[Rfam]
RNA sequence: UAAAUUGAUUUUCUGAGAGAUUCUUGUAAAAUAAGGGGGCCCACAAUAGGGCUAUGGUGAUAAACGUAACUUAUAAUAGAUAUUUUGGACUCGGGGGCGGUACCCGGCACCUCCACCUACAAAUUUUAUGGGGGUGAACUAGCUUCGACAGAUAUUAAAAAAAGUUAUUUUUACUCGGUAAGAUACCGCCGUGAUGGAUCAAAAAAAGUAAAUGCAAACAAUAAGUUUGUACCUGCUAAUAGCAACUUUAUGCCAGCUCUUCAAGCAGCAUAAUAUAAGCUAACUAGCGCGGUUUUGGGCUUGCCGGGCAACAGAAAAGCCCACA
Numbered sequence: 001u002a003a004a005u006u007g008a009u010u011u012u013c014u015g016a017g018a019g020a021u022u023c024u025u026g027u028a029a030a031a032u033a034a035g036g037g038g039g040c041c042c043a044c045a046a047u048a049g050g051g052c053u054a055u056g057g058u059g060a061u062a063a064a065c066g067u068a069a070c071u072u073a074u075a076a077u078a079g080a081u082a083u084u085u086u087g088g089a090c091u092c093g094g095g096g097g098c099g100g101u102a103c104c105c106g107g108c109a110c111c112u113c114c115a116c117c118u119a120c121a122a123a124u125u126u127u128a129u130g131g132g133g134g135u136g137a138a139c140u141a142g143c144u145u146c147g148a149c150a151g152a153u154a155u156u157a158a159a160a161a162a163a164g165u166u167a168u169u170u171u172u173a174c175u176c177g178g179u180a181a182g183a184u185a186c187c188g189c190c191g192u193g194a195u196g197g198a199u200c201a202a203a204a205a206a207a208g209u210a211a212a213u214g215c216a217a218a219c220a221a222u223a224a225g226u227u228u229g230u231a232c233c234u235g236c237u238a239a240u241a242g243c244a245a246c247u248u249u250a251u252g253c254c255a256g257c258u259c260u261u262c263a264a265g266c267a268g269c270a271u272a273a274u275a276u277a278a279g280c281u282a283a284c285u286a287g288c289g290c291g292g293u294u295u296u297g298g299g300c301u302u303g304c305c306g307g308g309c310a311a312c313a314g315a316a317a318a319g320c321c322c323a324c325a
Stems, first nucleotide, its partner, number of pairs: 039052004056175005066168007081154003085151003091107005108136007176191004185199001187197001290306004297321002301317001